[Rfam]
RNA: Small nucleolar RNA SNORD45
RNA sequence: GGUCUGUGAUGAGUUUUGGCAGCUAUUAUCUGAGUAUGAAUUUGAAGAUUAUCGGUUUAUCUCUAGAAUUACUCUGAGACCUG
Numbered sequence: 001g002g003u004c005u006g007u008g009a010u011g012a013g014u015u016u017u018g019g020c021a022g023c024u025a026u027u028a029u030c031u032g033a034g035u036a037u038g039a040a041u042u043u044g045a046a047g048a049u050u051a052u053c054g055g056u057u058u059a060u061c062u063c064u065a066g067a068a069u070u071a072c073u074c075u076g077a078g079a080c081c082u083g
Base pairs, nucleotide, nucleotide: 001081002080003079004078